[Rfam]
RNA sequence: UGUCGGGACCUCCUCAUUGUGCAUGCUGUGUGUAUUUGUGUAUACCACACAGCGCCUGCAAUGUGGAGGCUGAGACA
Number, nucleotide and partner (000 for none) at each position: 001u000002g000003u000004c000005g000006g000007g000008a000009c000010c000011u000012c066013c065014u000015c063016a062017u061018u060019g059020u058021g057022c000023a000024u054025g000026c052027u051028g050029u049030g048031u047032g000033u000034a000035u000036u000037u000038g000039u000040g000041u000042a000043u000044a000045c000046c000047a031048c030049a029050c028051a027052g026053c000054g024055c000056c000057u021058g020059c019060a018061a017062u016063g015064u000065g013066g012067a000068g000069g000070c000071u000072g000073a000074g000075a000076c000077a000
The record is a 77-nucleotide sequence from Mola mola, which matches "mir-460 microRNA precursor family" in Rfam. The base pairs follow the family's consensus structure, which was predicted with RNAalifold. Taxonomically the source falls in Mola (Eukaryota, Chordata, Craniata, Tetraodontiformes). Rfam 15.1 lists 1,029 matches to the family in 498 species.